[Rfam]
RNA sequence: UAUUUAGGAACGUCGACUAAACAGCCGCCACGUCCUGUGGCGAACGUCGACGCCAGUCCAUCCUGGACA
Numbered sequence: 001u002a003u004u005u006a007g008g009a010a011c012g013u014c015g016a017c018u019a020a021a022c023a024g025c026c027g028c029c030a031c032g033u034c035c036u037g038u039g040g041c042g043a044a045c046g047u048c049g050a051c052g053c054c055a056g057u058c059c060a061u062c063c064u065g066g067a068c069a
Stems, first nucleotide, its partner, number of pairs: 011052007027041005056068004
The family of this 69-nucleotide sequence from Bacillus sp. V59.32b is "Bacillaceae-1 RNA". Rfam classes the family as a small RNA. Taxonomically the source falls in Bacillus (Bacteria, Bacillati, Bacilli, Caryophanales).